[Rfam]
RNA: Small Cajal body specific RNA 3
Organism: Rousettus aegyptiacus
RNA sequence: CAUGAAACCUGCAGGACCCAACCAUGUGGGCAAAAGAAAAAUGCCUUUUGUCUACAAAUUGCAGUAGUCCUACAUAAACAUGGAAGUCUCUAUCUGGCUUAGGACAGCUGGCUAAGUCUGAUCAUUCCCUUCCAUACAAC
Numbered sequence: 001c002a003u004g005a006a007a008c009c010u011g012c013a014g015g016a017c018c019c020a021a022c023c024a025u026g027u028g029g030g031c032a033a034a035a036g037a038a039a040a041a042u043g044c045c046u047u048u049u050g051u052c053u054a055c056a057a058a059u060u061g062c063a064g065u066a067g068u069c070c071u072a073c074a075u076a077a078a079c080a081u082g083g084a085a086g087u088c089u090c091u092a093u094c095u096g097g098c099u100u101a102g103g104a105c106a107g108c109u110g111g112c113u114a115a116g117u118c119u120g121a122u123c124a125u126u127c128c129c130u131u132c133c134a135u136a137c138a139a140c
Stems, first nucleotide, its partner, number of pairs: 004070001006068001009064004025056007036047002082133005092122003096118007